[Rfam]
Overview: Rfam assigns this 91-nucleotide RNA from Fukomys damarensis to the family "G-CSF factor stem-loop destabilising element (SLDE)". Its family is annotated with nuclear-transcribed mRNA poly(A) tail shortening in the Gene Ontology. From the family's description: This family represents the granulocyte colony-stimulating factor stem-loop destabilising element (G-CSF SLDE).
Nucleotides: 091
Base pairs, nucleotide, nucleotide: 003022005020006019007018008017009016010015030056031055037054038053039052040051041050042049043048062080063079064078065077066076067075068074069073
Number, partner (000 for none) and nucleotide at each position: 001000c002000a003022g004000c005020g006019c007018c008017g009016c010015c011000u012000c013000g014000a015010g016009g017008u018007g019006g020005c021000c022003c023000a024000g025000g026000c027000g028000c029000u030056u031055u032000g033000g034000g035000a036000g037054g038053c039052c040051u041050c042049c043048c044000a045000u046000g047000u048043g049042g050041g051040a052039g053038g054037c055031g056030a057000c058000a059000u060000c061000c062080c063079u064078g065077u066076u067075u068074a069073a070000u071000a072000u073069u074068u075067a076066a077065a078064c079063a080062g081000c082000a083000g084000u085000g086000u087000u088000c089000c090000c091000a